About this RNA:
The family of this 89-nucleotide RNA sequence from Pan troglodytes is "NoRC associated RNA, pRNA". Rfam classes the family as a non-coding RNA gene. Pairs were carried over by alignment from the consensus structure, which is taken from published work.

RNA sequence: CCAUGGUGGCCUUUUUGGAGAUAGAUGUCCAGAUCGCUCAUUUCUGGGCUAGUGGUGUGGUCGGUGACUCGACACCCUGCCCCCAGGCG
Numbered sequence: 001c002c003a004u005g006g007u008g009g010c011c012u013u014u015u016u017g018g019a020g021a022u023a024g025a026u027g028u029c030c031a032g033a034u035c036g037c038u039c040a041u042u043u044c045u046g047g048g049c050u051a052g053u054g055g056u057g058u059g060g061u062c063g064g065u066g067a068c069u070c071g072a073c074a075c076c077c078u079g080c081c082c083c084c085a086g087g088c089g
Base pairs, nucleotide, nucleotide: 004086006084008083009082018078020076027068028067029066030064033061034060035059036058037057039055
Dot-bracket structure: ...(.(.((........(.(......((((..(((((.(...............).)))))..).))).......).)...))).)...